[Rfam]
RNA sequence: CUCUGUUUUCGGCUAGAAUUCAGGGCGAAGGAG
Numbered sequence: 001c002u003c004u005g006u007u008u009u010c011g012g013c014u015a016g017a018a019u020u021c022a023g024g025g026c027g028a029a030g031g032a033g
Stems, first nucleotide, its partner, number of pairs: 001025005008018003
Dot-bracket structure: (((((..(((.....)))..)))))........
Shown here is a 33-nucleotide sequence from Lactobacillus selangorensis, a member of the family "L31-Firmicutes ribosomal protein leader". On this family, see Eckert and Weinberg, BMC Microbiol 2020: "Discovery of 20 novel ribosomal leader candidates in bacteria and archaea".